[Rfam]
RNA: Plant signal recognition particle RNA
RNA sequence: GGGCUUGGUAACGCGAGCCUGUAACCCAAGUGGGAUUAAGAUGGUGGAACAAUUGGGCUCGCUCUGAAGGCUGGGCUUUUGGGGUGCUAUCUUCUGGCCUGCCCGUUCCAAGUGGUGAGUUUGGAUGGUGGAGUCUCUGCGAAGGCGGAGGCUUCAUUGUCCUUAGUUCGGAAGGUACCGCGUGAGGCUGGCUUCACAGAGCAGCGAAAACCUCCUCCUCUCUGCAGUGGAAGGAUAACGGGCCGGUGCAUUCUUAGUCCACUAACGCCGGAUGGGCUACCCAAAUUGAACCACCAUCUUU
Numbered sequence: 001g002g003g004c005u006u007g008g009u010a011a012c013g014c015g016a017g018c019c020u021g022u023a024a025c026c027c028a029a030g031u032g033g034g035a036u037u038a039a040g041a042u043g044g045u046g047g048a049a050c051a052a053u054u055g056g057g058c059u060c061g062c063u064c065u066g067a068a069g070g071c072u073g074g075g076c077u078u079u080u081g082g083g084g085u086g087c088u089a090u091c092u093u094c095u096g097g098c099c100u101g102c103c104c105g106u107u108c109c110a111a112g113u114g115g116u117g118a119g120u121u122u123g124g125a126u127g128g129u130g131g132a133g134u135c136u137c138u139g140c141g142a143a144g145g146c147g148g149a150g151g152c153u154u155c156a157u158u159g160u161c162c163u164u165a166g167u168u169c170g171g172a173a174g175g176u177a178c179c180g181c182g183u184g185a186g187g188c189u190g191g192c193u194u195c196a197c198a199g200a201g202c203a204g205c206g207a208a209a210a211c212c213u214c215c216u217c218c219u220c221u222c223u224g225c226a227g228u229g230g231a232a233g234g235a236u237a238a239c240g241g242g243c244c245g246g247u248g249c250a251u252u253c254u255u256a257g258u259c260c261a262c263u264a265a266c267g268c269c270g271g272a273u274g275g276g277c278u279a280c281c282c283a284a285a286u287u288g289a290a291c292c293a294c295c296a297u298c299u300u301u
Base pairs, nucleotide, nucleotide: 001020002019003018004017005016006015007014025034026033027032038300039299040298041297042296043295044294045293046292047291050288051287053285054284056281057280063275064274069269070268071267073260074259075258076257077256082252084251085250086249088248089247094246095245096244097243098242099241100240101239103234104233106232107231108230109229110228112225113224114223115222117220118219119218123162124161125160126159127158128157129156130155131154132153133152134151135150136149137148138147139146140145170215171214172213174211181206182205183204188199189198190197